[Rfam]
RNA sequence: UUUUUUCUAUAAAUCGCAGCUUUCAUAAGUCUUGUGAUGUUAACAGGUGGUAGAUGAGUUGUCCCUCUGCCACACGUGUACUGGCUUUAUGCUGUAUGAGUUCCAAAGAUUUACAAACAUUU
Numbered sequence: 001u002u003u004u005u006u007c008u009a010u011a012a013a014u015c016g017c018a019g020c021u022u023u024c025a026u027a028a029g030u031c032u033u034g035u036g037a038u039g040u041u042a043a044c045a046g047g048u049g050g051u052a053g054a055u056g057a058g059u060u061g062u063c064c065c066u067c068u069g070c071c072a073c074a075c076g077u078g079u080a081c082u083g084g085c086u087u088u089a090u091g092c093u094g095u096a097u098g099a100g101u102u103c104c105a106a107a108g109a110u111u112u113a114c115a116a117a118c119a120u121u122u
Stems, first nucleotide, its partner, number of pairs: 003050002006047003013038007022029002066109003074101002077098005083093003
Rfam assigns this 122-nucleotide sequence from Caenorhabditis latens to the family "Caenorhabditis snoRNA ceN92". Lineage of the source: Eukaryota > Eumetazoa > Rhabditomorpha > Rhabditidae > Caenorhabditis. By type it is an H/ACA-box small nucleolar RNA. The family's consensus secondary structure was predicted with RNAalifold.